[Rfam]
The family of this 300-nucleotide RNA from Mycobacterium haemophilum is "Mycobacterium smegmatis small RNA 1". Taxonomically the source falls in Mycobacterium (Bacteria, Bacillati, Actinomycetota, Mycobacteriaceae). A search with the family's covariance model found it, with a score of 258 bits. Pairs were carried over by alignment from the consensus structure, which was predicted with CMfinder. A reference for the family is Hnilicova et al. (2014), "Ms1, a novel sRNA interacting with the RNA polymerase core in mycobacteria", Nucleic Acids Res. From the family's description: Mycobacterium smegmatis small RNA 1 is highly expressed during stationary phase of growth. Ms1 RNA directly interacts with RNA polymerase (RNAP), but in a different way than 6S, which is present in other bacteria. Ms1 does not require the presence of the main sigma factor for RNAP interaction. There is evidence that Ms1 RNA may function similar to 6S RNA in M. smegmatis which does not have 6S RNA.
RNA sequence: ACGGAAGCCCGGUGAGGCCUAGGUCGAUCCGGAAGAGAAGGUUCGAUCUCCCGAUCCGGGCCCCUAGCACGGUUCUCGGCACCCACGCGGAGUCAUAGCCGCGAUAAUGGCAGAAGUGUUGCGGGCCUGCGUAAUUGCGAAGAGCGGAUGGUCACGACGGCCCUUUGGGUGGGGCUGCAGCCGGAAGUGUCGCAAAAUCGCCGAGGCCACCCACGCAGCCCAAAGAUGCACGCUUGGUACCCGAGUUCCGUGUUAGCGGGCGGCGGACCGAAUCGUUCGGAACGCCGCCCGCUUUACAUG
Numbered sequence: 001a002c003g004g005a006a007g008c009c010c011g012g013u014g015a016g017g018c019c020u021a022g023g024u025c026g027a028u029c030c031g032g033a034a035g036a037g038a039a040g041g042u043u044c045g046a047u048c049u050c051c052c053g054a055u056c057c058g059g060g061c062c063c064c065u066a067g068c069a070c071g072g073u074u075c076u077c078g079g080c081a082c083c084c085a086c087g088c089g090g091a092g093u094c095a096u097a098g099c100c101g102c103g104a105u106a107a108u109g110g111c112a113g114a115a116g117u118g119u120u121g122c123g124g125g126c127c128u129g130c131g132u133a134a135u136u137g138c139g140a141a142g143a144g145c146g147g148a149u150g151g152u153c154a155c156g157a158c159g160g161c162c163c164u165u166u167g168g169g170u171g172g173g174g175c176u177g178c179a180g181c182c183g184g185a186a187g188u189g190u191c192g193c194a195a196a197a198u199c200g201c202c203g204a205g206g207c208c209a210c211c212c213a214c215g216c217a218g219c220c221c222a223a224a225g226a227u228g229c230a231c232g233c234u235u236g237g238u239a240c241c242c243g244a245g246u247u248c249c250g251u252g253u254u255a256g257c258g259g260g261c262g263g264c265g266g267a268c269c270g271a272a273u274c275g276u277u278c279g280g281a282a283c284g285c286c287g288c289c290c291g292c293u294u295u296a297c298a299u300g
Base pairs, nucleotide, nucleotide: 003064004063007061008060009059010058011057012056016052017051021049022048025045026044027043029041030040065255066254067253068252069251070250071249072248076244077243078242079241083237084236085235087233088232089231092229093228098111099110100109118219119218120217121216122215123214124208125207126206127205128204129201130200131199135195136194137193138192139191140190144188145187149183150182151181152180158177159176160175161174162173163172164171256292257291258290259289260288261287262286263285264284265283268280269279270278
Dot-bracket structure: ..((..((((((...((...((..(((.((.........)).)))..)).))...)))))).))((((((((...((((...(((.(((..((....(((........)))......((((((((((((((...((((((...((...((((.....(((((((......)))))))..))))...)).))))))...)))..))))).....))))))........)).))).)))...))))...))))))))((((((((((..(((.......)))..))))))))))........